[Rfam]
RNA sequence: AGGACAGUAUCAAUUUGAUUGAACUGUACCUCGCUAUAAAAAUUAUAACUAAAGAGAUUCGCCUUGAUCUAGUAAUAGACAGGGACGGAAGA
Dot-bracket structure: ((((((((.((((.....))))))))).)))...........................((((((((.(((......)))))))).)))....

Shown here is a 92-nucleotide RNA from Viridibacillus arenosi, a member of the family "pan motif". The family's RNA type in Rfam is cis-regulatory element. The match comes from Rfam's covariance-model search (59 bits). The source organism's lineage runs through Bacteria, Bacillati, Caryophanaceae, Viridibacillus and Viridibacillus arenosi.